[Rfam]
A member of the RNA family "FMN riboswitch aptamer (RFN element)" from Rhizobium deserti, 146 nucleotides long.
The base pairs follow the family's consensus structure, which is taken from published work.
RNA sequence: UAUUGUUCUCAGGGCGGGGUGAAACUCCCCACCGGCGGUAUCGGGAUUGUCCCGGAGCCCGCGAGCGCUUCCGUCAAAGCGGAAGGUCAGCAGAUCCGGUGGGAAGCCGGAGCCGACGGUCACAGUCCGGAUGGAAGAGGGCAGGU
Numbered sequence: 001u002a003u004u005g006u007u008c009u010c011a012g013g014g015c016g017g018g019g020u021g022a023a024a025c026u027c028c029c030c031a032c033c034g035g036c037g038g039u040a041u042c043g044g045g046a047u048u049g050u051c052c053c054g055g056a057g058c059c060c061g062c063g064a065g066c067g068c069u070u071c072c073g074u075c076a077a078a079g080c081g082g083a084a085g086g087u088c089a090g091c092a093g094a095u096c097c098g099g100u101g102g103g104a105a106g107c108c109g110g111a112g113c114c115g116a117c118g119g120u121c122a123c124a125g126u127c128c129g130g131a132u133g134g135a136a137g138a139g140g141g142c143a144g145g146u
Base pairs, nucleotide, nucleotide: 003144004143005142006141007140008139009138010137017029018028019027031126032125033115034114035062036061037060038059057113058112065091066090095111096110097109098108099107117129118128119127